[Rfam]
RNA sequence: UUGAAGUUCCAUCUACAAAUGGAUAAGACUUUCGUCUUAAUGUAUUAAGAAUCGUUGAAGGAGCCAUACUCAAUAUCUAUCUUAUUUUCGUAAGAUAUUGGGUAUAGCUCCCUU
Number, nucleotide and partner (000 for none) at each position: 001u000002u000003g000004a000005a000006g000007u000008u023009c022010c021011a020012u019013c000014u000015a000016c000017a000018a000019a012020u011021g010022g009023a008024u000025a000026a000027g000028a000029c000030u000031u000032u000033c000034g000035u000036c000037u000038u000039a000040a000041u000042g000043u000044a000045u000046u000047a000048a000049g000050a000051a000052u000053c000054g000055u000056u000057g000058a000059a000060g111061g110062a109063g108064c107065c000066a105067u104068a103069c102070u000071c100072a099073a098074u000075a000076u000077c000078u000079a096080u095081c094082u093083u092084a000085u000086u000087u000088u000089c000090g000091u000092a083093a082094g081095a080096u079097a000098u073099u072100g071101g000102g069103u068104a067105u066106a000107g064108c063109u062110c061111c060112c000113u000114u000
RNA: Plastid-psbA-1 3UTR RNA
Organism: Camellia sinensis